[Rfam]
RNA sequence: AAUGAAUGAUGACAAAAUGUUUCGGUCCCAAAUGAUUUCUAUGAUUACUCUUUGAGAUCGUUCUGACAUU
Numbered sequence: 001a002a003u004g005a006a007u008g009a010u011g012a013c014a015a016a017a018u019g020u021u022u023c024g025g026u027c028c029c030a031a032a033u034g035a036u037u038u039c040u041a042u043g044a045u046u047a048c049u050c051u052u053u054g055a056g057a058u059c060g061u062u063c064u065g066a067c068a069u070u
Stems, first nucleotide, its partner, number of pairs: 001070004
Small nucleolar RNA SNORD73: a 70-nucleotide RNA from Xenopus tropicalis. A reference for the family is Rebane et al. (1998), "A novel snoRNA (U73) is encoded within the introns of the human and mouse ribosomal protein S3a genes", Gene. The family's RNA type in Rfam is C/D-box small nucleolar RNA.